RNA sequence: CGGGACUCCAUUGUGCUUGAUCUAACCAUGCGUGUCCGCUCUCGAGCAUGGUUCCGCCAAGCACCUCGGAGCCUCG
Numbered sequence: 001c002g003g004g005a006c007u008c009c010a011u012u013g014u015g016c017u018u019g020a021u022c023u024a025a026c027c028a029u030g031c032g033u034g035u036c037c038g039c040u041c042u043c044g045a046g047c048a049u050g051g052u053u054c055c056g057c058c059a060a061g062c063a064c065c066u067c068g069g070a071g072c073c074u075c076g
Stems, first nucleotide, its partner, number of pairs: 001076004006071004013064007024053008

The record is a 76-nucleotide RNA from Conger conger, which matches "mir-218 microRNA precursor family" in Rfam. The family has 74 seed sequences and 1,392 matches in Rfam 15.1. Its family is annotated with miRNA-mediated post-transcriptional gene silencing and RISC complex in the Gene Ontology. Taxonomically the source falls in Conger (Eukaryota, Eumetazoa, Teleostomi, Actinopterygii). The literature on the family includes a 2005 paper in Genes Dev by Chen et al., "The developmental miRNA profiles of zebrafish as determined by small RNA cloning".